[Rfam]
RNA sequence: GGCUAGUAUUUUACGAUUAAGAAUCAAUUGGUUCUUGUACAAAUUAUUGAUUGCUUU
Numbered sequence: 001g002g003c004u005a006g007u008a009u010u011u012u013a014c015g016a017u018u019a020a021g022a023a024u025c026a027a028u029u030g031g032u033u034c035u036u037g038u039a040c041a042a043a044u045u046a047u048u049g050a051u052u053g054c055u056u057u
Base pairs, nucleotide, nucleotide: 018037019036020035021034022033023032024031025030
RNA: Plastid-rps18 3UTR RNA